Nucleotides: 118
Stems, first nucleotide, its partner, number of pairs: 001118006008111006016103006024095001026093003
Number, partner (000 for none) and nucleotide at each position: 001118u002117c003116u004115g005114a006113g007000u008111g009110g010109a011108a012107u013106g014000u015000u016103g017102u018101c019100u020099g021098g022000u023000u024095c025000u026093a027092g028091g029000c030000c031000u032000g033000u034000g035000u036000a037000u038000g039000a040000g041000a042000u043000c044000c045000u046000u047000g048000g049000a050000g051000a052000u053000c054000c055000a056000u057000g058000c059000a060000u061000g062000c063000a064000u065000g066000g067000c068000u069000u070000g071000g072000a073000u074000c075000u076000c077000a078000u079000c080000u081000u082000a083000a084000u085000u086000u087000g088000a089000g090000c091028c092027c093026u094000c095024g096000g097000a098021c099020c100019a101018g102017g103016c104000u105000u106013c107012a108011u109010u110009c111008c112000c113006c114005u115004c116003a117002g118001a
Rfam assigns this 118-nucleotide RNA sequence from Eragrostis curvula to the family "mir-166 microRNA precursor family".
The literature on the family includes a 2001 paper in Cell by Ambros, "microRNAs: tiny regulators with great potential".
Gene Ontology terms of the family: miRNA-mediated post-transcriptional gene silencing and RISC complex.
Rfam 15.1 lists 2,599 matches to the family in 229 species.
Taxonomically the source falls in Eragrostis (Eukaryota, Streptophytina, Magnoliopsida, Eragrostidinae).
A search with the family's covariance model found it, with a score of 68 bits.
From the family's description: This family represents the plant microRNA (miRNA) precursor mir-166.